[Rfam]
RNA: SL2 RNA
RNA sequence: GGUUUUUACCCAGUAUCACAAGGUACUAGGAAGUUCUGACCGGUUCUACGAACUGUGCUAGAAAAACCAAAUUUUUUGAACGCACUCCUGGGGUUAUCCGGUUGUGCUAA
Numbered sequence: 001g002g003u004u005u006u007u008a009c010c011c012a013g014u015a016u017c018a019c020a021a022g023g024u025a026c027u028a029g030g031a032a033g034u035u036c037u038g039a040c041c042g043g044u045u046c047u048a049c050g051a052a053c054u055g056u057g058c059u060a061g062a063a064a065a066a067c068c069a070a071a072u073u074u075u076u077u078g079a080a081c082g083c084a085c086u087c088c089u090g091g092g093g094u095u096a097u098c099c100g101g102u103u104g105u106g107c108u109a110a
Base pairs, nucleotide, nucleotide: 008034009030010029013026014025015024016023037060038059040057041055042054043053044052045051084108086106088104090102092099093098